RNA sequence: AUGAAUAACCAACGGAAAAAGGCGAAAACCACGCCUUUCAAUAUG
Numbered sequence: 001a002u003g004a005a006u007a008a009c010c011a012a013c014g015g016a017a018a019a020a021g022g023c024g025a026a027a028a029c030c031a032c033g034c035c036u037u038u039c040a041a042u043a044u045g
Stems, first nucleotide, its partner, number of pairs: 018038001020036005